[Rfam]
RNA: Small nucleolar RNA SNORA29
RNA sequence: AUUCCCAUUAUACUACCACUUUUUCAAUUUCCAGAUGAAGUGGCUAUGCUUGUGGGAUAGAGAAAAACUUGCCAUGGUCUGAAGGGAAAGGUUGAUUUGUAUCUUUUUCCUAUAUGAAGUUGGCAGAACAUCUUUUG
Numbered sequence: 001a002u003u004c005c006c007a008u009u010a011u012a013c014u015a016c017c018a019c020u021u022u023u024u025c026a027a028u029u030u031c032c033a034g035a036u037g038a039a040g041u042g043g044c045u046a047u048g049c050u051u052g053u054g055g056g057a058u059a060g061a062g063a064a065a066a067a068c069u070u071g072c073c074a075u076g077g078u079c080u081g082a083a084g085g086g087a088a089a090g091g092u093u094g095a096u097u098u099g100u101a102u103c104u105u106u107u108u109c110c111u112a113u114a115u116g117a118a119g120u121u122g123g124c125a126g127a128a129c130a131u132c133u134u135u136u137g
Stems, first nucleotide, its partner, number of pairs: 004056004016043004071124004089111003